Rfam assigns this 185-nucleotide sequence from Paenibacillus larvae to the family "PyrR binding site".
Pairs were carried over by alignment from the consensus structure, which is taken from published work.
Rfam's curators write: This family represents the PyrR binding site and terminator structure.
A search with the family's covariance model found it, with a score of 65 bits.
RNA sequence: AGUACCUUUAACAGACAGUCCAGAGAGGCUGGCAAGGUAAACGACGAUAAGAGUACUCAUCAGCAUGCGUGCUGGUGAAUACCCUGAAGGGCACGCUGUGCCUAUCAGGGGAGCUGCUCCAUAUAUUUUCGUGUGCACAUAAGAGUGUAAAACUCCUUGCCGCCAGGGCAAGGAGUUUUUUUGUU
Numbered sequence: 001a002g003u004a005c006c007u008u009u010a011a012c013a014g015a016c017a018g019u020c021c022a023g024a025g026a027g028g029c030u031g032g033c034a035a036g037g038u039a040a041a042c043g044a045c046g047a048u049a050a051g052a053g054u055a056c057u058c059a060u061c062a063g064c065a066u067g068c069g070u071g072c073u074g075g076u077g078a079a080u081a082c083c084c085u086g087a088a089g090g091g092c093a094c095g096c097u098g099u100g101c102c103u104a105u106c107a108g109g110g111g112a113g114c115u116g117c118u119c120c121a122u123a124u125a126u127u128u129u130c131g132u133g134u135g136c137a138c139a140u141a142a143g144a145g146u147g148u149a150a151a152a153c154u155c156c157u158u159g160c161c162g163c164c165a166g167g168g169c170a171a172g173g174a175g176u177u178u179u180u181u182u183g184u185u
Base pairs, nucleotide, nucleotide: 003039004038005037006036007035008034016031017030018029019028020027051084053082054081055080057078058077059076060075061074062073063072064071149179150178151177152176153175154174155173156172157171158170159169160168161167